[Rfam]
RNA: MIR1508 microRNA precursor family
RNA sequence: CUACUCAACUGCUAUUUUCCUUUUUGAACCUUGUUACCUUGAGCAUCUUGAUCAAUUGUUUAGAAAGGGAAAUAGCAGUUGAGUAGUGC
Numbered sequence: 001c002u003a004c005u006c007a008a009c010u011g012c013u014a015u016u017u018u019c020c021u022u023u024u025u026g027a028a029c030c031u032u033g034u035u036a037c038c039u040u041g042a043g044c045a046u047c048u049u050g051a052u053c054a055a056u057u058g059u060u061u062a063g064a065a066a067g068g069g070a071a072a073u074a075g076c077a078g079u080u081g082a083g084u085a086g087u088g089c
Stems, first nucleotide, its partner, number of pairs: 001086019021066006028059002031055003039050001041049003